Shown here is a 48-nucleotide RNA from Paucilactobacillus oligofermentans, a member of the family "PreQ1 (pre queuosine) riboswitch aptamer". It scores 45 bits against the family's covariance model. On this family, see Reader et al., J Biol Chem 2004: "Identification of four genes necessary for biosynthesis of the modified nucleoside queuosine". From the family's description: This family is a bacterial riboswitch that binds to the metabolite preQ1, an intermediate in the biosynthesis of the modified nucleoside queuosine from GTP. One example of this riboswitch is located in the leader of the Bacillus subtilis ykvJKLM (queCDEF) operon which encodes four genes necessary for queuosine production. PreQ1 binding to the riboswitch aptamer is thought to induce premature transcription termination within the leader to down-regulate expression of these genes. Rfam 15.1 lists 873 matches to the family in 692 species.
[Rfam]
RNA sequence: UCGUUGGUGGUUCGUAACCAUCCCACCAGAUAAAAAAACUAGGGAGAA
Numbered sequence: 001u002c003g004u005u006g007g008u009g010g011u012u013c014g015u016a017a018c019c020a021u022c023c024c025a026c027c028a029g030a031u032a033a034a035a036a037a038a039c040u041a042g043g044g045a046g047a048a
Base pairs, nucleotide, nucleotide: 006027007026008025009024010023015041016040